Source information:
The family of this 30-nucleotide sequence from Halorussus sp. MSC15.2 is "CRISPR RNA direct repeat element". Lineage of the source: Archaea > Methanobacteriati > Methanobacteriota > Halobacteria > Halorussus. Rfam links the family to the GO term defense response. It scores 41 bits against the family's covariance model. Pairs were carried over by alignment from the consensus structure, which was predicted with WAR.
RNA sequence: GUUCCAGAUGUACCCUUGUGGGGUUGAAGC
Numbered sequence: 001g002u003u004c005c006a007g008a009u010g011u012a013c014c015c016u017u018g019u020g021g022g023g024u025u026g027a028a029g030c
Base pairs, nucleotide, nucleotide: 012024013023014022015021